[Rfam]
RNA sequence: GCAAUAGAAUAGGAUAUUUCAAGGGUGGUCGGCACACUCCCAAACAGAAAGGGGGUGAUGCUGGAUGACAGUUUAUGAAUCAUUCAUGUUUGCGAUUGGUUUUGCAGGUUUAAUCGUAACCAUUCUGUCAUUUAACCGAAAAAAAUAAUCCACCCUUGAGUUAGUGACGGCUCGGGUGGAUUAUCCUACCAAUAUGCCGAUCCCCUGCUGAGGGAUCCGUCUAUUGCUGGACCGGACAUGUUACUGCAUGUUUG
Dot-bracket structure: (((((.((....(.((.((((((((.(((.....((.((((..........)))))).........(((((........((............))........(...............)....)))))..................)))..)))))))).........(.(..........).).........)).)..((((.......))))....)).))))).....(((((((((....)))))))))
Numbered sequence: 001g002c003a004a005u006a007g008a009a010u011a012g013g014a015u016a017u018u019u020c021a022a023g024g025g026u027g028g029u030c031g032g033c034a035c036a037c038u039c040c041c042a043a044a045c046a047g048a049a050a051g052g053g054g055g056u057g058a059u060g061c062u063g064g065a066u067g068a069c070a071g072u073u074u075a076u077g078a079a080u081c082a083u084u085c086a087u088g089u090u091u092g093c094g095a096u097u098g099g100u101u102u103u104g105c106a107g108g109u110u111u112a113a114u115c116g117u118a119a120c121c122a123u124u125c126u127g128u129c130a131u132u133u134a135a136c137c138g139a140a141a142a143a144a145a146u147a148a149u150c151c152a153c154c155c156u157u158g159a160g161u162u163a164g165u166g167a168c169g170g171c172u173c174g175g176g177u178g179g180a181u182u183a184u185c186c187u188a189c190c191a192a193u194a195u196g197c198c199g200a201u202c203c204c205c206u207g208c209u210g211a212g213g214g215a216u217c218c219g220u221c222u223a224u225u226g227c228u229g230g231a232c233c234g235g236a237c238a239u240g241u242u243a244c245u246g247c248a249u250g251u252u253u254g
Stems, first nucleotide, its partner, number of pairs: 001227005007221002013198001015196002018160008027150003035057002038055004067129005080095002104120001170185001172183001201215004233254009